Annotation:
This 299-nucleotide RNA from Hyaloperonospora arabidopsidis belongs to the Rfam family "Metazoan signal recognition particle RNA". Clan: SRP clan. By type it is a non-coding RNA gene. For this family Rfam cites "Towards the structure of the mammalian signal recognition particle" (Wild et al., Curr Opin Struct Biol, 2002).
[Rfam]
RNA sequence: GCCGGCUUGGGUGGCGCCAACUUGUAACGGAACGCUUCUGUCCGGGUAGUGAGGUACGAGGGCUGUGACACGUGUGGUGGCGACACUAUCCACAGGGUGUAGAAGGCGCGCCCGUCUCAAACCAGGUUCGACAUUGUGGUGAGCUCGUAAGGGUUCACACCAAGGUCACUAAGGAACGGUGCACCGCCCCAGACUGGAUAACAGAGCAGGGAAAAACCUUCGCUCCUGGUAGUGGGAGGAUCACGUGCCAGAAUCCUGAUGUGGCGUCACCGCUCUACAGGUCGCAACACGAAUACCUU
Numbered sequence: 001g002c003c004g005g006c007u008u009g010g011g012u013g014g015c016g017c018c019a020a021c022u023u024g025u026a027a028c029g030g031a032a033c034g035c036u037u038c039u040g041u042c043c044g045g046g047u048a049g050u051g052a053g054g055u056a057c058g059a060g061g062g063c064u065g066u067g068a069c070a071c072g073u074g075u076g077g078u079g080g081c082g083a084c085a086c087u088a089u090c091c092a093c094a095g096g097g098u099g100u101a102g103a104a105g106g107c108g109c110g111c112c113c114g115u116c117u118c119a120a121a122c123c124a125g126g127u128u129c130g131a132c133a134u135u136g137u138g139g140u141g142a143g144c145u146c147g148u149a150a151g152g153g154u155u156c157a158c159a160c161c162a163a164g165g166u167c168a169c170u171a172a173g174g175a176a177c178g179g180u181g182c183a184c185c186g187c188c189c190c191a192g193a194c195u196g197g198a199u200a201a202c203a204g205a206g207c208a209g210g211g212a213a214a215a216a217c218c219u220u221c222g223c224u225c226c227u228g229g230u231a232g233u234g235g236g237a238g239g240a241u242c243a244c245g246u247g248c249c250a251g252a253a254u255c256c257u258g259a260u261g262u263g264g265c266g267u268c269a270c271c272g273c274u275c276u277a278c279a280g281g282u283c284g285c286a287a288c289a290c291g292a293a294u295a296c297c298u299u
Stems, first nucleotide, its partner, number of pairs: 001047003004023002007020004028044003051299006060290001062288001064286002066277002071272002077270006084263001087261004094257005100251001105249006112239002115237005121230006129222001130167003134163003139158008169173001176220001178218003187211003194204003